[Rfam]
RNA sequence: GUUGCUGUGAUGCGGGUUGUAGUUGACGAAAACGACGCCGCGCAUUUGAUCGAUGAUAUGGAAAAGCGGGUUCCAGUCGAACAGCCCGAUCAUUGCGCUCGGCAACAUGUUGGCAACGAACAUCUUGCCCGAGGCAAUCAUGUUGGCGCGCAC
Numbered sequence: 001g002u003u004g005c006u007g008u009g010a011u012g013c014g015g016g017u018u019g020u021a022g023u024u025g026a027c028g029a030a031a032a033c034g035a036c037g038c039c040g041c042g043c044a045u046u047u048g049a050u051c052g053a054u055g056a057u058a059u060g061g062a063a064a065a066g067c068g069g070g071u072u073c074c075a076g077u078c079g080a081a082c083a084g085c086c087c088g089a090u091c092a093u094u095g096c097g098c099u100c101g102g103c104a105a106c107a108u109g110u111u112g113g114c115a116a117c118g119a120a121c122a123u124c125u126u127g128c129c130c131g132a133g134g135c136a137a138u139c140a141u142g143u144u145g146g147c148g149c150g151c152a153c
Base pairs, nucleotide, nucleotide: 002035003034004033006032008030013025014024015023037057039055040054041052042051066151067150068149070082071081072080073079087146089144091142092141093140098134099133100131101130102129103127104126105125107123108122110119111118112117
Rfam assigns this 153-nucleotide RNA sequence from Roseobacter sp. HKCCD8822 to the family "Ruegeria cis2 sRNA". Rfam links the family to the GO term regulation of gene expression. The family's RNA type in Rfam is small RNA. The match comes from Rfam's covariance-model search (84 bits). The literature on the family includes a 2016 paper in Front Microbiol by Rivers et al., "Experimental Identification of Small Non-Coding RNAs in the Model Marine Bacterium Ruegeria pomeroyi DSS-3".